RNA sequence: GGAAAUUAAAAAACUGUUUCGUAACUUUUAACUAAAAAAACUAAGAUUCGGCUUUUAAAGUCCUUAUUUAAGAACCGGUUCUUAGUUUUUUUAGUUAAAAGUUAAGAAACAGUUUUUUAACUUCC
Numbered sequence: 001g002g003a004a005a006u007u008a009a010a011a012a013a014c015u016g017u018u019u020c021g022u023a024a025c026u027u028u029u030a031a032c033u034a035a036a037a038a039a040a041c042u043a044a045g046a047u048u049c050g051g052c053u054u055u056u057a058a059a060g061u062c063c064u065u066a067u068u069u070a071a072g073a074a075c076c077g078g079u080u081c082u083u084a085g086u087u088u089u090u091u092u093a094g095u096u097a098a099a100a101g102u103u104a105a106g107a108a109a110c111a112g113u114u115u116u117u118u119a120a121c122u123u124c125c
Base pairs, nucleotide, nucleotide: 001125002124003123004122006120007119008118009117010116011115012114013113014112015111016110017109018108019107020106022104023103024102025101026100027099028098029097030096031095032094033093034092035091036090037089038088039087041085042084043083044082045081046080
RNA: MIR9563 microRNA precursor family